[Rfam]
RNA sequence: CUAUAUAUACCCUGUAGAACCGAAUGUGUGUUUGGAAGCCACAGUCACAGAUUCGGUUUUAGGGGGGUAUAUGGG
Number, nucleotide and partner (000 for none) at each position: 001c000002u073003a072004u071005a070006u069007a068008u000009a000010c065011c064012c063013u000014g000015u000016a060017g059018a058019a057020c056021c055022g054023a053024a052025u051026g000027u049028g048029u047030g046031u000032u000033u000034g000035g000036a000037a000038g000039c000040c000041a000042c000043a000044g000045u000046c030047a029048c028049a027050g000051a025052u024053u023054c022055g021056g020057u019058u018059u017060u016061a000062g000063g012064g011065g010066g000067g000068u007069a006070u005071a004072u003073g002074g000075g000

Overview
Rfam assigns this 75-nucleotide RNA from Electrophorus electricus to the family "mir-10 microRNA precursor family". On this family, see Lee and Ambros, Science 2001: "An extensive class of small RNAs in Caenorhabditis elegans".